Rfam assigns this 163-nucleotide sequence from Desulfoscipio geothermicus to the family "RT-14 RNA". The organism belongs to Desulfoscipio geothermicus, within Bacteria.

[Rfam]
RNA sequence: UAAGCCUCAUAAGCCAGAAGGCGUUAACCCAAGGGUUAGCGUCCAGUGCAUGAGGAAAAAGGGGCGCAUAUCCUUGCCUACUGCCUGAUUGGGCAGGCAAAAAACUGAAUUGCCGGGGAGGCAGUUAGUAGCCAUCUUGUUUGGUGAACGGUGUCACACCCGG
Dot-bracket structure: ....(((((...((.....(.((((((((....)))))))).)....)).)))))....................((((...............))))..............(((((..((((.(.....((((.......))))....).))))...)))))